[Rfam]
RNA sequence: UUGCUGCAUUUGCUGAGUUCCCGUUGAUUGCAACGGGAAGCGGGGGAACCACAGCGGGAGGGAUCCAGUGUUCUGGAAUCUUCUCGUUUAUCGCGGCGCUGCGAUCCGAUGUGAGAGUCGGAGAAGAGCGCUGCAGGGGUGAAUCAUCGACCGAAAGCCAUGGACUUCGGUUGAAGUAGGGCAACUCUCACUGCCCGAAUCCGACAGCUAACCUCGUAAGCGUAUAGUUGAGAGAGG
Numbered sequence: 001u002u003g004c005u006g007c008a009u010u011u012g013c014u015g016a017g018u019u020c021c022c023g024u025u026g027a028u029u030g031c032a033a034c035g036g037g038a039a040g041c042g043g044g045g046g047a048a049c050c051a052c053a054g055c056g057g058g059a060g061g062g063a064u065c066c067a068g069u070g071u072u073c074u075g076g077a078a079u080c081u082u083c084u085c086g087u088u089u090a091u092c093g094c095g096g097c098g099c100u101g102c103g104a105u106c107c108g109a110u111g112u113g114a115g116a117g118u119c120g121g122a123g124a125a126g127a128g129c130g131c132u133g134c135a136g137g138g139g140u141g142a143a144u145c146a147u148c149g150a151c152c153g154a155a156a157g158c159c160a161u162g163g164a165c166u167u168c169g170g171u172u173g174a175a176g177u178a179g180g181g182c183a184a185c186u187c188u189c190a191c192u193g194c195c196c197g198a199a200u201c202c203g204a205c206a207g208c209u210a211a212c213c214u215c216g217u218a219a220g221c222g223u224a225u226a227g228u229u230g231a232g233a234g235a236g237g
Base pairs, nucleotide, nucleotide: 011222012221013220014219018039019038020037021036022035023034024033025032026031040217041216042215043214044213045212050136137202138201139200145176147174148173149172150171151170152169153168154167155166179196180195181194182193
Dot-bracket structure: ..........((((...(((((((((....)))))))))((((((....(.....................................................................................)(((.....(.(((((((((..........))))))))).)..((((..........))))...))).........)))))).))))...............

Shown here is a 237-nucleotide RNA from Paenibacillus radicis, a member of the family "c-di-AMP riboswitch aptamer (ydaO/yuaA leader)". Taxonomically the source falls in Paenibacillus (Bacteria, Bacillati, Bacillota, Bacilli).